Description: A member of the RNA family "Caenorhabditis snoRNA ceN49" from Caenorhabditis japonica, 137 nucleotides long. The family has 3 seed sequences and 11 matches in Rfam 15.1. Gene Ontology terms of the family: nucleolus and RNA processing. The source organism's lineage runs through Eukaryota, Protostomia, Nematoda, Rhabditida and Caenorhabditis. It scores 84 bits against the family's covariance model.
[Rfam]
RNA sequence: ACCGCCUCUAUACCAAACACUUGCAAGUGACCCCUUGCUGCAAGUGCAUGGAAGAGCGCGGAAAGAAUGGAAGCGUCCGAAGUCCACCCCUUCAAUUCUACUUAUGGGUUGCGGGCACUUUACCUCGGUUGACACUA
Numbered sequence: 001a002c003c004g005c006c007u008c009u010a011u012a013c014c015a016a017a018c019a020c021u022u023g024c025a026a027g028u029g030a031c032c033c034c035u036u037g038c039u040g041c042a043a044g045u046g047c048a049u050g051g052a053a054g055a056g057c058g059c060g061g062a063a064a065g066a067a068u069g070g071a072a073g074c075g076u077c078c079g080a081a082g083u084c085c086a087c088c089c090c091u092u093c094a095a096u097u098c099u100a101c102u103u104a105u106g107g108g109u110u111g112c113g114g115g116c117a118c119u120u121u122a123c124c125u126c127g128g129u130u131g132a133c134a135c136u137a
Stems, first nucleotide, its partner, number of pairs: 003060003006056004013051003018046008075130001078127003082123002089115003093111005